[Rfam]
RNA: Fumarate/nitrate reductase regulator sRNA
Organism: Gibbsiella quercinecans
RNA sequence: GCAGGUGAAUGCAACGUCAAGCGAUGGGCGUUGCGCUCCAUAAUUGUCUUACUUUCUUAUUUUAGAAUUACUGCAUAGCACAUUUAAUUCGUAUGAUGCCGGCCUAAACGCCGGCAUUU
Numbered sequence: 001g002c003a004g005g006u007g008a009a010u011g012c013a014a015c016g017u018c019a020a021g022c023g024a025u026g027g028g029c030g031u032u033g034c035g036c037u038c039c040a041u042a043a044u045u046g047u048c049u050u051a052c053u054u055u056c057u058u059a060u061u062u063u064a065g066a067a068u069u070a071c072u073g074c075a076u077a078g079c080a081c082a083u084u085u086a087a088u089u090c091g092u093a094u095g096a097u098g099c100c101g102g103c104c105u106a107a108a109c110g111c112c113g114g115c116a117u118u119u
Stems, first nucleotide, its partner, number of pairs: 001047004007038002010035009065090006072080003098115006